Shown here is an 84-nucleotide RNA sequence from Actinoplanes campanulatus, a member of the family "Glycine riboswitch aptamer". A search with the family's covariance model found it, with a score of 64 bits.

RNA sequence: GGGGUGCACGCGGGAGAGACCUUAGGGCGCCGAAGAGGCAACUCCUCCCCGGAAACUUUCAGGCACAAGGACCGCGUGGGCAGG
Numbered sequence: 001g002g003g004g005u006g007c008a009c010g011c012g013g014g015a016g017a018g019a020c021c022u023u024a025g026g027g028c029g030c031c032g033a034a035g036a037g038g039c040a041a042c043u044c045c046u047c048c049c050c051g052g053a054a055a056c057u058u059u060c061a062g063g064c065a066c067a068a069g070g071a072c073c074g075c076g077u078g079g080g081c082a083g084g
Stems, first nucleotide, its partner, number of pairs: 007078007020027002029064003032060002036058003042052002
The organism belongs to Actinoplanes, within Bacteria. For this family Rfam cites "A glycine-dependent riboswitch that uses cooperative binding to control gene expression" (Mandal et al., Science, 2004).